The family of this 88-nucleotide sequence from Sulfitobacter guttiformis is "Rhodo-rpoB RNA". A search with the family's covariance model found it, with a score of 39 bits.
RNA sequence: UGGUCGGAAGGAAGGCGGUGGGACGCUUUCCAGCAUAGACAGGACUAAACCGCUCUGAUGAGCGCACCACGUUCCCGGUGGCAGCGUU
Number, nucleotide and partner (000 for none) at each position: 001u042002g000003g040004u039005c038006g000007g000008a000009a000010g031011g030012a029013a028014g027015g026016c025017g024018g000019u000020g000021g000022g000023a000024c017025g016026c015027u014028u013029u012030c011031c010032a000033g000034c000035a000036u000037a000038g005039a004040c003041a000042g001043g000044a000045c000046u000047a000048a000049a000050c000051c000052g000053c000054u000055c000056u000057g000058a000059u000060g000061a088062g087063c086064g085065c084066a000067c081068c080069a079070c078071g000072u000073u000074c000075c000076c000077g000078g070079u069080g068081g067082c000083a000084g065085c064086g063087u062088u061

Taxonomically the source falls in Sulfitobacter (Bacteria, Pseudomonadati, Rhodobacterales, Roseobacteraceae). It is annotated as a cis-regulatory element. Pairs were carried over by alignment from the consensus structure, which is taken from published work.